[Rfam]
About this RNA:
Potassium channel RNA editing signal: a 114-nucleotide sequence from Diploscapter pachys. Pairs were carried over by alignment from the consensus structure, which is taken from published work. It is annotated as a cis-regulatory element. The source organism's lineage runs through Eukaryota, Metazoa, Bilateria, Nematoda and Diploscapter. From the family's description: This family represents a group of sequences related to the human potassium channel Kv1.1 hairpin element which directs the efficient modification of an adenosine to inosine by an adenosine deaminase acting on RNA (ADAR). The ADAR modification causes an isoleucine/valine recoding event which lies in the ion-conducting pore of the potassium channel. It is thought that this editing event targets the process of fast inactivation and allows a more rapid recovery from inactivation at negative potentials.
RNA sequence: CAAGGAUACGGCGAUCUAGUUCCCCUCAGUCCACAGGGCAAGAUUGUCGGCUCGAUGUGUGCUCUGAUUGGCGUGCUCACGUUGGCCCUACCCGUGCCGAUCAUCGUCGCCAAU
Numbered sequence: 001c002a003a004g005g006a007u008a009c010g011g012c013g014a015u016c017u018a019g020u021u022c023c024c025c026u027c028a029g030u031c032c033a034c035a036g037g038g039c040a041a042g043a044u045u046g047u048c049g050g051c052u053c054g055a056u057g058u059g060u061g062c063u064c065u066g067a068u069u070g071g072c073g074u075g076c077u078c079a080c081g082u083u084g085g086c087c088c089u090a091c092c093c094g095u096g097c098c099g100a101u102c103a104u105c106g107u108c109g110c111c112a113a114u
Stems, first nucleotide, its partner, number of pairs: 004111002008107004013102004021094001037077004049063003